[Rfam]
A member of the RNA family "Glycine riboswitch aptamer" from Longispora fulva, 90 nucleotides long. This family represents the bacterial glycine riboswitch. Taxonomically the source falls in Longispora (Bacteria, Actinomycetota, Micromonosporales, Micromonosporaceae). On this family, see Mandal et al., Science 2004: "A glycine-dependent riboswitch that uses cooperative binding to control gene expression".
RNA sequence: CGACCCCGAGCGGGAGAGCUGACCUUCGAGGUCACGCCGAAGGAGCAAGACUCCCCGCACACUCUCAGGCCCACUUACCGCCCGGGUUAG
Numbered sequence: 001c002g003a004c005c006c007c008g009a010g011c012g013g014g015a016g017a018g019c020u021g022a023c024c025u026u027c028g029a030g031g032u033c034a035c036g037c038c039g040a041a042g043g044a045g046c047a048a049g050a051c052u053c054c055c056c057g058c059a060c061a062c063u064c065u066c067a068g069g070c071c072c073a074c075u076u077a078c079c080g081c082c083c084g085g086g087u088u089a090g
Stems, first nucleotide, its partner, number of pairs: 006085003010081004020034004036070003039066002043064003049058001